[Rfam]
RNA sequence: GAGAACAGCAUAACUGAAAUUUCAAAUGAAGGGGUAACGCCCUGAAGGGAAUUCGCUAAUACUCCGAAUAGCGUUAGUUGAAUACAGAUGACUAAGGUUAUAAGCUCGGAGAAGUCGUGCGAAGCACACCCUAAAGUAGAAAUACUAGGAAAGAUACCUAGAGGUAGGUGUUGUGUGUGACAGUGCGGGCGGGGUUGCC
Numbered sequence: 001g002a003g004a005a006c007a008g009c010a011u012a013a014c015u016g017a018a019a020u021u022u023c024a025a026a027u028g029a030a031g032g033g034g035u036a037a038c039g040c041c042c043u044g045a046a047g048g049g050a051a052u053u054c055g056c057u058a059a060u061a062c063u064c065c066g067a068a069u070a071g072c073g074u075u076a077g078u079u080g081a082a083u084a085c086a087g088a089u090g091a092c093u094a095a096g097g098u099u100a101u102a103a104g105c106u107c108g109g110a111g112a113a114g115u116c117g118u119g120c121g122a123a124g125c126a127c128a129c130c131c132u133a134a135a136g137u138a139g140a141a142a143u144a145c146u147a148g149g150a151a152a153g154a155u156a157c158c159u160a161g162a163g164g165u166a167g168g169u170g171u172u173g174u175g176u177g178u179g180a181c182a183g184u185g186c187g188g189g190c191g192g193g194g195u196u197g198c199c
Stems, first nucleotide, its partner, number of pairs: 018053006031043004054191004064109004068101005074095007116187005124178006130149003136145002153172008